[Rfam]
RNA: Small nucleolar RNA SNORA41
Organism: Microcebus murinus
RNA sequence: UUCCACAGCUACUGGUCUGCAGCUGUCCUUAGGAUAGCAGUUGUGGCAUUUCUCUGUGGGAAACAACUGGUAACACAAUGAAACAUCUCUUUCUUAGCAAAACAGAAAGUGGGCAUAUGUGCGAUAGACACAA
Numbered sequence: 001u002u003c004c005a006c007a008g009c010u011a012c013u014g015g016u017c018u019g020c021a022g023c024u025g026u027c028c029u030u031a032g033g034a035u036a037g038c039a040g041u042u043g044u045g046g047c048a049u050u051u052c053u054c055u056g057u058g059g060g061a062a063a064c065a066a067c068u069g070g071u072a073a074c075a076c077a078a079u080g081a082a083a084c085a086u087c088u089c090u091u092u093c094u095u096a097g098c099a100a101a102a103c104a105g106a107a108a109g110u111g112g113g114c115a116u117a118u119g120u121g122c123g124a125u126a127g128a129c130a131c132a133a
Stems, first nucleotide, its partner, number of pairs: 003059004017046009074121004086113003089109006
Dot-bracket structure: ..((((..........(((((((((............))))))))).........))))..............((((........(((((((((.........)))))).)))....))))............